[Rfam]
RNA sequence: ACACAUGUCUUAAAUUUUUGGCUAAGAUCGAGUGUAGUAUCUGUUCUUAUCAGUUUAAUAUCUGAUACGUCUCCUAUCUGGGGAUCAUAUAUUAAACUGAUUUUUGGAACAGGGAGAUGGAAUAGGGGCUUGUUCCGUCCACUCCACGCAUCAACCUGGUAUUGCAGUACUUCCAGAAGCGGUGCACUUUCU
Numbered sequence: 001a002c003a004c005a006u007g008u009c010u011u012a013a014a015u016u017u018u019u020g021g022c023u024a025a026g027a028u029c030g031a032g033u034g035u036a037g038u039a040u041c042u043g044u045u046c047u048u049a050u051c052a053g054u055u056u057a058a059u060a061u062c063u064g065a066u067a068c069g070u071c072u073c074c075u076a077u078c079u080g081g082g083g084a085u086c087a088u089a090u091a092u093u094a095a096a097c098u099g100a101u102u103u104u105u106g107g108a109a110c111a112g113g114g115a116g117a118u119g120g121a122a123u124a125g126g127g128g129c130u131u132g133u134u135c136c137g138u139c140c141a142c143u144c145c146a147c148g149c150a151u152c153a154a155c156c157u158g159g160u161a162u163u164g165c166a167g168u169a170c171u172u173c174c175a176g177a178a179g180c181g182g183u184g185c186a187c188u189u190u191c192u
Stems, first nucleotide, its partner, number of pairs: 008027003012023001015020001048067006069085006113145004119139002125136004148185005156176004
Rfam assigns this 192-nucleotide sequence from Erpetoichthys calabaricus to the family "U2 spliceosomal RNA". Rfam 15.1 lists 71,512 matches to the family in 2,642 species. Its Rfam clan is "U2 clan". The match comes from Rfam's covariance-model search (146 bits). Rfam's curators write: U2 is a small nuclear RNA (snRNA) component of the spliceosome (involved in pre-mRNA splicing). Taxonomically the source falls in Erpetoichthys (Eukaryota, Bilateria, Craniata, Euteleostomi). It is annotated as a spliceosomal small nuclear RNA.